[Rfam]
RNA sequence: CAAUCAAAUCAUUCGCAUCCUCAUAUAUGUUGAGAAUACGGCUCAACGUCUCUACCUGUCACCGUAAAUGACGGACUAUGAGGGAAGAUGAUCAUGAA
Numbered sequence: 001c002a003a004u005c006a007a008a009u010c011a012u013u014c015g016c017a018u019c020c021u022c023a024u025a026u027a028u029g030u031u032g033a034g035a036a037u038a039c040g041g042c043u044c045a046a047c048g049u050c051u052c053u054a055c056c057u058g059u060c061a062c063c064g065u066a067a068a069u070g071a072c073g074g075a076c077u078a079u080g081a082g083g084g085a086a087g088a089u090g091a092u093c094a095u096g097a098a
Base pairs, nucleotide, nucleotide: 018084019083020082021081022080023079024078025077029047030046031045032044033043034042056074057073058072059071060070061069
The record is a 98-nucleotide RNA from Gracilibacillus halophilus, which matches "Purine riboswitch aptamer" in Rfam. Riboswitches are metabolite binding domains within certain messenger RNAs that serve as precision sensors for their corresponding targets. The source organism's lineage runs through Bacteria, Bacillota, Caryophanales, Bacillaceae and Gracilibacillus halophilus. Pairs were carried over by alignment from the consensus structure, which is taken from published work. The match comes from Rfam's covariance-model search (73 bits).